[Rfam]
RNA sequence: ACCCGGAGGAUGAUGAUGAAAUCGUCGAAAUUGCUGGCCUGGGCAGUGGCCGCUGCCGCCGUCGUGGCGGUACCGCUGGUGAUGGCGCAGAGCGCCGCCAACAAGGGCAAGACGGCCGAAGCCGCACAGGAUGCGUCCGCCGACAAGGCGAAGGCCGAGGCCGAGCAGAAGGCCCGGCGCCGUGCCGCGGCCGCCGCGCAGCAGAAGGCCCGGGGCGAGCAGCCGGCCCCGCGCGAGGAAGAGGAAGAAGAGGAAGCCCGCAAGCGUCGCUGACGCGGGUUUCCCGAUGGUGGAUGGACGCCCCGGCGCUGGCCGGGGCGUCUUUUUUUUGAGGUCGCCGCAU
Numbered sequence: 001a002c003c004c005g006g007a008g009g010a011u012g013a014u015g016a017u018g019a020a021a022u023c024g025u026c027g028a029a030a031u032u033g034c035u036g037g038c039c040u041g042g043g044c045a046g047u048g049g050c051c052g053c054u055g056c057c058g059c060c061g062u063c064g065u066g067g068c069g070g071u072a073c074c075g076c077u078g079g080u081g082a083u084g085g086c087g088c089a090g091a092g093c094g095c096c097g098c099c100a101a102c103a104a105g106g107g108c109a110a111g112a113c114g115g116c117c118g119a120a121g122c123c124g125c126a127c128a129g130g131a132u133g134c135g136u137c138c139g140c141c142g143a144c145a146a147g148g149c150g151a152a153g154g155c156c157g158a159g160g161c162c163g164a165g166c167a168g169a170a171g172g173c174c175c176g177g178c179g180c181c182g183u184g185c186c187g188c189g190g191c192c193g194c195c196g197c198g199c200a201g202c203a204g205a206a207g208g209c210c211c212g213g214g215g216c217g218a219g220c221a222g223c224c225g226g227c228c229c230c231g232c233g234c235g236a237g238g239a240a241g242a243g244g245a246a247g248a249a250g251a252g253g254a255a256g257c258c259c260g261c262a263a264g265c266g267u268c269g270c271u272g273a274c275g276c277g278g279g280u281u282u283c284c285c286g287a288u289g290g291u292g293g294a295u296g297g298a299c300g301c302c303c304c305g306g307c308g309c310u311g312g313c314c315g316g317g318g319c320g321u322c323u324u325u326u327u328u329u330u331g332a333g334g335u336c337g338c339c340g341c342a343u
Stems, first nucleotide, its partner, number of pairs: 022177003027173001035169001037166002040163001049071005055065002074135003094108003113124004147162003181235005190209003215227002264341003278284002294325001296323012
A member of the RNA family "Proteobacterial sRNA sX6" from Stenotrophomonas daejeonensis, 343 nucleotides long. NCBI's taxonomy places the organism under Bacteria, Pseudomonadati, Lysobacterales, Lysobacteraceae, Stenotrophomonas. The family's RNA type in Rfam is small RNA. A search with the family's covariance model found it, with a score of 75 bits. The family's consensus secondary structure was predicted with RNAalifold.